[Rfam]
RNA sequence: GAAAGGUCGGGUAUUUACCCGGCUGGAUGCGAACACCGCAUCCCAUUUAGG
Numbered sequence: 001g002a003a004a005g006g007u008c009g010g011g012u013a014u015u016u017a018c019c020c021g022g023c024u025g026g027a028u029g030c031g032a033a034c035a036c037c038g039c040a041u042c043c044c045a046u047u048u049a050g051g
Stems, first nucleotide, its partner, number of pairs: 005024008025043007

S4-Clostridia ribosomal protein leader: a 51-nucleotide sequence. Rfam classes the family as a cis-regulatory leader. It is one of the family's seed sequences. A reference for the family is Eckert and Weinberg (2020), "Discovery of 20 novel ribosomal leader candidates in bacteria and archaea", BMC Microbiol.